Shown here is a 90-nucleotide RNA sequence from Erinaceus europaeus, a member of the family "mir-1388 microRNA precursor family". The source organism's lineage runs through Eukaryota, Metazoa, Craniata, Sarcopterygii and Erinaceus. On this family, see Soares et al., BMC Genomics 2009: "Parallel DNA pyrosequencing unveils new zebrafish microRNAs". It scores 84 bits against the family's covariance model.

RNA sequence: CCCAGGGCAGUGCCUCUAGGACUGUCCAGCCUGAGAAUGGUGUUUGCAGUUCAAUCUCAGGUUCGUCAGCCCAAGAGAUGCCGCCCCUUC
Number, nucleotide and partner (000 for none) at each position: 001c000002c000003c000004a000005g087006g086007g085008c083009a000010g081011u080012g079013c000014c077015u076016c075017u000018a000019g072020g071021a000022c069023u068024g067025u000026c065027c000028a063029g062030c061031c060032u059033g058034a057035g056036a055037a000038u053039g052040g000041u000042g000043u000044u000045u000046g000047c000048a000049g000050u000051u000052c039053a038054a000055u036056c035057u034058c033059a032060g031061g030062u029063u028064c000065g026066u000067c024068a023069g022070c000071c020072c019073a000074a000075g016076a015077g014078a000079u012080g011081c010082c000083g008084c000085c007086c006087c005088u000089u000090c000